[Rfam]
Shown here is a 102-nucleotide RNA sequence from Coprococcus eutactus, a member of the family "c-di-GMP-I riboswitch aptamer". Its family is annotated with cyclic-di-GMP binding in the Gene Ontology.

Nucleotides: 102
Base pairs, nucleotide, nucleotide: 012037013036017032018031019030020029021028022027040096041095042094043093047092048091049088050087051086057081058080059079
Number, partner (000 for none) and nucleotide at each position: 001000u002000u003000g004000a005000a006000u007000a008000c009000u010000c011000g012037g013036c014000a015000a016000a017032a018031c019030a020029a021028g022027a023000g024000a025000a026000a027022u028021u029020u030019u031018g032017u033000g034000a035000c036013g037012c038000a039000a040096a041095g042094c043093u044000a045000u046000a047092g048091g049088g050087c051086c052000u053000a054000a055000g056000a057081g058080a059079u060000u061000u062000u063000g064000a065000c066000a067000u068000c069000a070000g071000g072000g073000g074000a075000g076000a077000c078000g079059a080058u081057c082000a083000g084000a085000u086051g087050g088049c089000a090000g091048c092047c093043a094042g095041u096040u097000g098000c099000a100000u101000c102000u